[Rfam]
RNA: c-di-GMP-I riboswitch aptamer
Organism: Paenalicyclobacillus ferrooxydans
RNA sequence: AUGGAGUACGGGCACACCAAAGGAAACUUUGGGUCGCAAAGCUACGGGUCUACGGGUUUGACCUAUGAUCGCCGGGUUGCUAUA
Numbered sequence: 001a002u003g004g005a006g007u008a009c010g011g012g013c014a015c016a017c018c019a020a021a022g023g024a025a026a027c028u029u030u031g032g033g034u035c036g037c038a039a040a041g042c043u044a045c046g047g048g049u050c051u052a053c054g055g056g057u058u059u060g061a062c063c064u065a066u067g068a069u070c071g072c073c074g075g076g077u078u079g080c081u082a083u084a
Stems, first nucleotide, its partner, number of pairs: 012037002017032006040078004045074003048069003055063003